[Rfam]
RNA sequence: AGAGGAGCUUCCACGGGCAACCGUUUGGGGGCUCUUUUCUUUUGC
Numbered sequence: 001a002g003a004g005g006a007g008c009u010u011c012c013a014c015g016g017g018c019a020a021c022c023g024u025u026u027g028g029g030g031g032c033u034c035u036u037u038u039c040u041u042u043u044g045c
Stems, first nucleotide, its partner, number of pairs: 005034008015025001016022001
A member of the RNA family "ctRNA" from Shinella sp. WSJ-2, 45 nucleotides long. The family has 10 seed sequences and 245 matches in Rfam 15.1. It is annotated as an antisense RNA. NCBI's taxonomy places the organism under Bacteria, Pseudomonadati, Pseudomonadota, Alphaproteobacteria, Shinella. A reference for the family is Venkova-Canova et al. (2004), "Two discrete elements are required for the replication of a repABC plasmid: an antisense RNA and a stem-loop structure", Mol Microbiol. The base pairs follow the family's consensus structure, which is taken from published work.